[Rfam]
RNA sequence: UUGACAUCGAAAUGAGAAUUGUUAUUAUUCUCUCAACUGAUCGCGAGAUCAGCCGGUAUCUGAAGGCUCCAGGCAGUCGAUCUUUCAGUUAUCUCCUCAUCAGGCUAAUCACGGUUUUGACCCGGCUCUUGCCGGGUCUUUUUUUG
Dot-bracket structure: .................................(..((((((....))))))..)....(((((((.(..........)..)))))))......(((....)))..............((((((((....))))))))........
Shown here is a 146-nucleotide RNA from Pseudomonas saudiphocaensis, a member of the family "PrrF RNA". The family has 18 seed sequences and 107 matches in Rfam 15.1. From the family's description: PrrF RNA is a small RNA involved in iron homeostasis and is found exclusively in Pseudomonas species. The family's RNA type in Rfam is small RNA. NCBI's taxonomy places the organism under Bacteria, Pseudomonadota, Gammaproteobacteria, Pseudomonadaceae, Pseudomonas. It scores 138 bits against the family's covariance model.